[Rfam]
RNA sequence: AUACUCCCUCUGUCCUAAAAUAUAAGAAUGUUUUUGAUACUAUGCUAGUGUCAAAAACAUUCUUAUAUUUUGGGACGGAGGGAAUAC
Numbered sequence: 001a002u003a004c005u006c007c008c009u010c011u012g013u014c015c016u017a018a019a020a021u022a023u024a025a026g027a028a029u030g031u032u033u034u035u036g037a038u039a040c041u042a043u044g045c046u047a048g049u050g051u052c053a054a055a056a057a058c059a060u061u062c063u064u065a066u067a068u069u070u071u072g073g074g075a076c077g078g079a080g081g082g083a084a085u086a087c
Stems, first nucleotide, its partner, number of pairs: 003085001005083001007081005013075005019069023
Description:
The record is an 87-nucleotide sequence from Triticum urartu, which matches "MIR1120/MIR1122 microRNA precursor family" in Rfam. The source organism's lineage runs through Eukaryota, commelinids, Poales, Triticodae and Triticum. On this family, see Yao et al., Genome Biol 2007: "Cloning and characterization of microRNAs from wheat (Triticum aestivum L.)". A search with the family's covariance model found it, with a score of 94 bits.